Background: Rfam assigns this 140-nucleotide sequence from Clostridiaceae bacterium OM08-6BH to the family "FMN riboswitch aptamer (RFN element)". The base pairs follow the family's consensus structure, which is taken from published work.
[Rfam]
RNA sequence: GAGAUUCUUCGGGGCGGGGCGUAAUUCCCCACCGGCGGUGUAUUUCCUUUUGGAAAAAGAAGUCCGCGACCCGCAGCAAUGCGGCUGAACCGGUGUGAUUCCGGUACCGACAGUUACAGUCUGGAUGAGAGAAGAAAAUU
Numbered sequence: 001g002a003g004a005u006u007c008u009u010c011g012g013g014g015c016g017g018g019g020c021g022u023a024a025u026u027c028c029c030c031a032c033c034g035g036c037g038g039u040g041u042a043u044u045u046c047c048u049u050u051u052g053g054a055a056a057a058a059g060a061a062g063u064c065c066g067c068g069a070c071c072c073g074c075a076g077c078a079a080u081g082c083g084g085c086u087g088a089a090c091c092g093g094u095g096u097g098a099u100u101c102c103g104g105u106a107c108c109g110a111c112a113g114u115u116a117c118a119g120u121c122u123g124g125a126u127g128a129g130a131g132a133a134g135a136a137a138a139u140u
Base pairs, nucleotide, nucleotide: 005136006135007134008133009132010131017029018028019027031120032119033109034108035067036066037065038064062107063106071084072083089105090104091103092102093101111123112122113121